[Rfam]
Overview: transfer-messenger RNA: a 372-nucleotide RNA from Rhodococcus (subgen. Prescottella) equi. Bacterial tmRNA, also known as 10Sa RNA or SsrA, is named for its dual tRNA and mRNA-like properties. Its role is to liberate the mRNA from a stalled ribosome. To accomplish this part of the tmRNA is used as a reading frame that ends in a translation stop signal. It is annotated as a non-coding RNA gene. Its family is annotated with RNA catabolic process in the Gene Ontology. A reference for the family is Mao et al. (2010), "Variations on the tmRNA gene", RNA Biol.

RNA sequence: GGGGCUGAACGGUUUCGACUGCGUACGUUGAGUUAGGGGAAGCGUGUCGGUGCAGGCAAGAGACCACCGUAAGCGUCGCUGCAAACCAAUAAGCGCCGAUUCCAAUCAGCGCGACUACGCCCUCGCUGCCUAAGUAGCGACUGCGUGUCUGUCAGUCCGGGUUCGCCCUCGGCCCGGGUACUGGCAUCAGCUAGAGGGCUUUACCGUUCCACUCGGUCGCGGAGUGGCACGGGACAUCCAACAGCGACUGGGAUCGUCAUCUCGGCUUGUUCGCGGGACCGGGAGAUCCAAGUAGAGGCAUAGCGAACUGCACACGGAGAAGCCCUGGCAAAGCGGCGGAGGACCCGGGUUCGAUUCCCGGCAGCUCCACUG
Number, nucleotide and partner (000 for none) at each position: 001g368002g367003g366004g365005c364006u363007g362008a000009a000010c000011g000012g000013u000014u000015u000016c000017g000018a000019c341020u340021g000022c338023g337024u336025a000026c000027g000028u332029u000030g000031a000032g329033u328034u327035a326036g325037g324038g323039g000040a000041a000042g000043c316044g315045u314046g313047u312048c069049g068050g067051u066052g065053c000054a000055g000056g082057c081058a080059a000060g000061a000062g000063a000064c000065c052066a051067c050068c049069g048070u000071a000072a000073g000074c000075g000076u000077c000078g000079c000080u058081g057082c056083a000084a000085a000086c000087c000088a000089a000090u000091a000092a000093g000094c000095g000096c000097c000098g000099a000100u000101u000102c000103c000104a000105a000106u000107c000108a000109g000110c000111g000112c000113g000114a000115c000116u000117a000118c000119g000120c000121c000122c000123u140124c139125g138126c137127u136128g135129c134130c000131u000132a000133a000134g129135u128136a127137g126138c125139g124140a123141c000142u000143g000144c000145g000146u000147g000148u000149c000150u186151g185152u184153c183154a182155g181156u178157c177158c176159g175160g174161g173162u172163u171164c000165g199166c198167c197168c196169u195170c194171g163172g162173c161174c160175c159176g158177g157178g156179u000180a000181c155182u154183g153184g152185c151186a150187u000188c000189a000190g000191c000192u000193a000194g170195a169196g168197g167198g166199c165200u000201u000202u000203a000204c232205c231206g230207u229208u000209c227210c226211a225212c224213u000214c000215g249216g248217u247218c246219g245220c244221g000222g000223a000224g212225u211226g210227g209228c000229a207230c206231g205232g204233g000234a000235c000236a000237u000238c000239c000240a000241a000242c000243a000244g220245c219246g218247a217248c216249u215250g000251g289252g288253a287254u286255c285256g000257u283258c282259a000260u000261c000262u000263c000264g280265g279266c000267u000268u000269g308270u307271u306272c305273g000274c000275g000276g000277g301278a000279c265280c264281g000282g258283g257284a000285g255286a254287u253288c252289c251290a000291a000292g000293u000294a000295g000296a000297g000298g000299c000300a000301u277302a000303g000304c000305g272306a271307a270308c269309u000310g000311c000312a047313c046314a045315c044316g043317g000318a000319g000320a000321a000322g000323c038324c037325c036326u035327g034328g033329c032330a000331a000332a028333g000334c000335g000336g024337c023338g022339g000340a020341g019342g000343a000344c000345c361346c360347g359348g358349g357350u000351u000352c000353g000354a000355u000356u000357c349358c348359c347360g346361g345362c007363a006364g005365c004366u003367c002368c001369a000370c000371u000372g000